[Rfam]
Description: Vertebrate telomerase RNA: a 443-nucleotide RNA sequence. Rfam links the family to the GO terms telomerase activity, telomere maintenance via telomerase and telomerase catalytic core complex. The family has 37 seed sequences and 523 matches in Rfam 15.1. The literature on the family includes a 2005 paper in J Biol Chem by Fragnet et al., "Comparative functional study of the viral telomerase RNA based on natural mutations". About the family: Telomerase is a ribonucleoprotein reverse transcriptase that synthesises telomeric DNA. Telomerase RNAs differ greatly in sequence and structure between vertebrates, ciliates and yeasts, but they share a 5' pseudoknot structure close to the template sequence. Vertebrate telomerase RNAs have a 3' H/ACA snoRNA-like domain.

RNA sequence: UGUCAUUCCGGAGAGGGGCGUUUUCUUCUUUCUCUAACCCUAAUGUAUUGCUUGGGCAGCAGCUCUCUCGGUAUGCUCGCUGUUUUGCUGGCUAACUUUCAGCGAGCAGAGGGCGAAGUCGAAUUUCGGACAAGGGAGAAAAAAUGUUAGCCGGGGAACGCCCCUUUCCCGAAUGCCCGUGCCGUCCUUCCUCUCCUCUGGGCCCGUUGGCGAUAGCCCCCGGCCUCCCUCGCUCCUUAGGCCGCGGUCAGUCCGGGCCCUUGCUCUGGCAUGAGGUCCAUUGCUGCCGCGAAGAGUUCGUCUCUGUCAGCCUUGAGGUGGCCAGCAUGGAAUUGGCGGGCUUGUGGCGGCGCGCGGGAAAAAGCAAAUGGUGAACUAGGUGCGUGUUGUGGUCGUGUUCCUGAAGCGUGGAAUGUGCGAUCUGUGCGCUAGUUCAUACACAC
Numbered sequence: 001u002g003u004c005a006u007u008c009c010g011g012a013g014a015g016g017g018g019c020g021u022u023u024u025c026u027u028c029u030u031u032c033u034c035u036a037a038c039c040c041u042a043a044u045g046u047a048u049u050g051c052u053u054g055g056g057c058a059g060c061a062g063c064u065c066u067c068u069c070g071g072u073a074u075g076c077u078c079g080c081u082g083u084u085u086u087g088c089u090g091g092c093u094a095a096c097u098u099u100c101a102g103c104g105a106g107c108a109g110a111g112g113g114c115g116a117a118g119u120c121g122a123a124u125u126u127c128g129g130a131c132a133a134g135g136g137a138g139a140a141a142a143a144a145u146g147u148u149a150g151c152c153g154g155g156g157a158a159c160g161c162c163c164c165u166u167u168c169c170c171g172a173a174u175g176c177c178c179g180u181g182c183c184g185u186c187c188u189u190c191c192u193c194u195c196c197u198c199u200g201g202g203c204c205c206g207u208u209g210g211c212g213a214u215a216g217c218c219c220c221c222g223g224c225c226u227c228c229c230u231c232g233c234u235c236c237u238u239a240g241g242c243c244g245c246g247g248u249c250a251g252u253c254c255g256g257g258c259c260c261u262u263g264c265u266c267u268g269g270c271a272u273g274a275g276g277u278c279c280a281u282u283g284c285u286g287c288c289g290c291g292a293a294g295a296g297u298u299c300g301u302c303u304c305u306g307u308c309a310g311c312c313u314u315g316a317g318g319u320g321g322c323c324a325g326c327a328u329g330g331a332a333u334u335g336g337c338g339g340g341c342u343u344g345u346g347g348c349g350g351c352g353c354g355c356g357g358g359a360a361a362a363a364g365c366a367a368a369u370g371g372u373g374a375a376c377u378a379g380g381u382g383c384g385u386g387u388u389g390u391g392g393u394c395g396u397g398u399u400c401c402u403g404a405a406g407c408g409u410g411g412a413a414u415g416u417g418c419g420a421u422c423u424g425u426g427c428g429c430u431a432g433u434u435c436a437u438a439c440a441c442a443c
Base pairs, nucleotide, nucleotide: 007172008171010169011168012167013166014165015164016163017162018161019160020159021158022157023156024155025154062114063113064112065111066110074108075107076106077105078104079103080102081101082100091151092150093149094148095147096146097144098143099142176358177357178356179355180354181353182352201342202341203340204339205338206337207336208335209334222323223322224321225320228318229317230316231315232314243291244290245289246288247287249286250285251284252283255279256278257277258276259275293305294304295303296302373435374434375433376432378430379429380427381426382425383424393420394419395418396417397416398413399412400411401410